[Rfam]
RNA sequence: CUCUUAUCAAGAGUGGCGGAGGGACUGGCCCGACGAUGCCCGGCAACCAUUAAGCAACAGCUUAAAAGGUGCUAAUUCCUGCAGGAUGUGAAUCCUGGUAGAUAAGAG
Numbered sequence: 001c002u003c004u005u006a007u008c009a010a011g012a013g014u015g016g017c018g019g020a021g022g023g024a025c026u027g028g029c030c031c032g033a034c035g036a037u038g039c040c041c042g043g044c045a046a047c048c049a050u051u052a053a054g055c056a057a058c059a060g061c062u063u064a065a066a067a068g069g070u071g072c073u074a075a076u077u078c079c080u081g082c083a084g085g086a087u088g089u090g091a092a093u094c095c096u097g098g099u100a101g102a103u104a105a106g107a108g
Stems, first nucleotide, its partner, number of pairs: 001108008013041001015040003021031003025081001027079002042073004047069002050065004077100001082097006
RNA: SAM riboswitch aptamer (S box leader)